[Rfam]
RNA: speF leader
Organism: Neorhizobium galegae
RNA sequence: UCCCUGCUUUCCAUCAGCGGGGGUUACUGAAGAGGCACACCAUCAUUGCCGGAAGUGCGGUAGGGACCUCCCUCCAAUCCAUGGCAGACAAAGCCGGAUCAUUGCUCGUGGCAGAGCGUUGAUCCACUUAUCGCGCGUUUGAGCGUGUUCACGGUAC
Numbered sequence: 001u002c003c004c005u006g007c008u009u010u011c012c013a014u015c016a017g018c019g020g021g022g023g024u025u026a027c028u029g030a031a032g033a034g035g036c037a038c039a040c041c042a043u044c045a046u047u048g049c050c051g052g053a054a055g056u057g058c059g060g061u062a063g064g065g066a067c068c069u070c071c072c073u074c075c076a077a078u079c080c081a082u083g084g085c086a087g088a089c090a091a092a093g094c095c096g097g098a099u100c101a102u103u104g105c106u107c108g109u110g111g112c113a114g115a116g117c118g119u120u121g122a123u124c125c126a127c128u129u130a131u132c133g134c135g136c137g138u139u140u141g142a143g144c145g146u147g148u149u150c151a152c153g154g155u156a157c
Stems, first nucleotide, its partner, number of pairs: 001023008034050004057136003083095002103118005
Dot-bracket structure: ((((((((.......))))))))..........((((.........))))......(((.......................((.........)).......(((((......)))))...............))).....................